A member of the RNA family "MIR390 microRNA precursor family" from Apostasia shenzhenica, 129 nucleotides long. Its family is annotated with RISC complex and miRNA-mediated post-transcriptional gene silencing in the Gene Ontology. A search with the family's covariance model found it, with a score of 94 bits. The organism belongs to Apostasia, within Eukaryota. Pairs were carried over by alignment from the consensus structure, which was predicted with WAR.

RNA sequence: UGGAAGAAUCCUUAAAGCUCAGGAGGGAUAGCGCCAUGGGUGGUGAACUGAAAGAGCUAGCUGGCGUUCUGCUCUCUUCACUUUGAAGAUCUCUGGCGCUAUCUAUCCUGAGUUCUAUGGGUUCUUCCU
Numbered sequence: 001u002g003g004a005a006g007a008a009u010c011c012u013u014a015a016a017g018c019u020c021a022g023g024a025g026g027g028a029u030a031g032c033g034c035c036a037u038g039g040g041u042g043g044u045g046a047a048c049u050g051a052a053a054g055a056g057c058u059a060g061c062u063g064g065c066g067u068u069c070u071g072c073u074c075u076c077u078u079c080a081c082u083u084u085g086a087a088g089a090u091c092u093c094u095g096g097c098g099c100u101a102u103c104u105a106u107c108c109u110g111a112g113u114u115c116u117a118u119g120g121g122u123u124c125u126u127c128c129u
Stems, first nucleotide, its partner, number of pairs: 010120001016114009026104010